RNA: Flavo-1 RNA
Organism: Flavobacterium sp. GT3R68
RNA sequence: CUUUAGCCCUGAUGAAAGCGGCAUCCCACGCUUUUUUGGCGUGGAUAAAGCGGACAGCAGGAAUAGAA
Numbered sequence: 001c002u003u004u005a006g007c008c009c010u011g012a013u014g015a016a017a018g019c020g021g022c023a024u025c026c027c028a029c030g031c032u033u034u035u036u037u038g039g040c041g042u043g044g045a046u047a048a049a050g051c052g053g054a055c056a057g058c059a060g061g062a063a064u065a066g067a068a
Base pairs, nucleotide, nucleotide: 009060010059011058013056014055018051019050023046024045025044026043028042029041030040031039032038